RNA sequence: AUCCGCCUGGCUCCCUGUAUGCCACCUGCGAAGCAUGCUAAAGGUUUUUGCCAGGAUUUGCAGCUGGCGUUCAGGGAGUCAAGCAGGC
Numbered sequence: 001a002u003c004c005g006c007c008u009g010g011c012u013c014c015c016u017g018u019a020u021g022c023c024a025c026c027u028g029c030g031a032a033g034c035a036u037g038c039u040a041a042a043g044g045u046u047u048u049u050g051c052c053a054g055g056a057u058u059u060g061c062a063g064c065u066g067g068c069g070u071u072c073a074g075g076g077a078g079u080c081a082a083g084c085a086g087g088c
Stems, first nucleotide, its partner, number of pairs: 002087002005084002008081007016073002019070006027062003
The family of this 88-nucleotide RNA from Physcomitrium patens is "mir-160 microRNA precursor family". For this family Rfam cites "Prediction of plant microRNA targets" (Rhoades et al., Cell, 2002). A search with the family's covariance model found it, with a score of 59 bits. Gene Ontology terms of the family: RISC complex and miRNA-mediated post-transcriptional gene silencing.